A member of the RNA family "Fluoride riboswitch aptamer (crcB RNA motif)" from Celerinatantimonas diazotrophica, 63 nucleotides long. Rfam 15.1 lists 2,293 matches to the family in 1,982 species. Pairs were carried over by alignment from the consensus structure, which is taken from published work. Taxonomically the source falls in Celerinatantimonas (Bacteria, Pseudomonadota, Gammaproteobacteria, Celerinatantimonadaceae).

RNA sequence: CCAUGUUAAGGAGAUGGCAUUCCUCCUCUAACCGCCCCAUUGGCUGAUGAUGCCUGAUGACAA
Dot-bracket structure: .........[[[[..((((((.]]]].......(((.....)))....)))))).........